Rfam assigns this 504-nucleotide part of an RNA from uncultured archaeon A07HR60 to the family "Archaeal small subunit ribosomal RNA". Rfam 15.1 lists 709 matches to the family in 491 species. A reference for the family is Yusupov et al. (2001), "Crystal structure of the ribosome at 5.5 A resolution", Science. Clan: SSU clan.

RNA sequence: AUUCCGGUUGAUCCUGCCGGAGGCCAUUGCUCUUGGGGUCCGAUUUAGCCAUGCUAGUCGCACGGGUUCAGACCCGUGGCAAAUAGCUCAGUAGCACGUGGCCAAUCUACCCUCCGGAUCAGCACACCCUCGGGAAACUGAGGACAAUUCUGUAUACGGCUCCCGACCUGGAAUGGUGGGAGCCCGAAACGCUCCGGCGCCGGAGGAUGAGGCUGCGGCCGAUUAGGUUGACGGUGGGGUAAUGGCCCACCGUGCCGAUAAUCGGUCUGGGUCAUGAGAGUGAGAACCCAGAGACGGACUCUGAGACAAGAUUCCGGGCCCUACGGGGCGCAGCAGGCGCGAAACCUUUACACUGCACGCCAGUGCGAUAAGGGGACCCCAAGUGCGCAGGCAUAGUGCCUGCGCUUUUCUGGACUGUAGGGCGGUCCAGGAACAAGGGCUGGGCAAGACCGGUGCCAGCCGCCGCGGUAAUACCGGCAGCCCAAGUGAUGGCCGCUGUUAUUG
Numbered sequence: 001a002u003u004c005c006g007g008u009u010g011a012u013c014c015u016g017c018c019g020g021a022g023g024c025c026a027u028u029g030c031u032c033u034u035g036g037g038g039u040c041c042g043a044u045u046u047a048g049c050c051a052u053g054c055u056a057g058u059c060g061c062a063c064g065g066g067u068u069c070a071g072a073c074c075c076g077u078g079g080c081a082a083a084u085a086g087c088u089c090a091g092u093a094g095c096a097c098g099u100g101g102c103c104a105a106u107c108u109a110c111c112c113u114c115c116g117g118a119u120c121a122g123c124a125c126a127c128c129c130u131c132g133g134g135a136a137a138c139u140g141a142g143g144a145c146a147a148u149u150c151u152g153u154a155u156a157c158g159g160c161u162c163c164c165g166a167c168c169u170g171g172a173a174u175g176g177u178g179g180g181a182g183c184c185c186g187a188a189a190c191g192c193u194c195c196g197g198c199g200c201c202g203g204a205g206g207a208u209g210a211g212g213c214u215g216c217g218g219c220c221g222a223u224u225a226g227g228u229u230g231a232c233g234g235u236g237g238g239g240u241a242a243u244g245g246c247c248c249a250c251c252g253u254g255c256c257g258a259u260a261a262u263c264g265g266u267c268u269g270g271g272u273c274a275u276g277a278g279a280g281u282g283a284g285a286a287c288c289c290a291g292a293g294a295c296g297g298a299c300u301c302u303g304a305g306a307c308a309a310g311a312u313u314c315c316g317g318g319c320c321c322u323a324c325g326g327g328g329c330g331c332a333g334c335a336g337g338c339g340c341g342a343a344a345c346c347u348u349u350a351c352a353c354u355g356c357a358c359g360c361c362a363g364u365g366c367g368a369u370a371a372g373g374g375g376a377c378c379c380c381a382a383g384u385g386c387g388c389a390g391g392c393a394u395a396g397u398g399c400c401u402g403c404g405c406u407u408u409u410c411u412g413g414a415c416u417g418u419a420g421g422g423c424g425g426u427c428c429a430g431g432a433a434c435a436a437g438g439g440c441u442g443g444g445c446a447a448g449a450c451c452g453g454u455g456c457c458a459g460c461c462g463c464c465g466c467g468g469u470a471a472u473a474c475c476g477g478c479a480g481c482c483c484a485a486g487u488g489a490u491g492g493c494c495g496c497u498g499u500u501a502u503u504g
Base pairs, nucleotide, nucleotide: 004020005019006018007017008016022494023493024492025491026490027489028488029487030486031485033382034381035380036379037378038377039376040375041374042340048338049337050336052335053334054333057080058079059078062077063076064075065074066073067072087293088292089291097217098216099215100214101213102212103211106210107209111206112205113204114203115202116201117200120152121151122150128143129142130141131140132139133138158184159183160182161181162180163179164178165177167176168175191198192197219265220264221263226256227255228254231253232252233251234250235249236248237247238246268290269289270288271287272283273282274281275280295316296315297314298313300311318329319328320327321326346372348371349370350369354367355366356365357364358363385405386404387403388402389401390400391399392398410430411429412428413427414426415425416424437483438482439481440480441479442478450477451476452475453474459466460465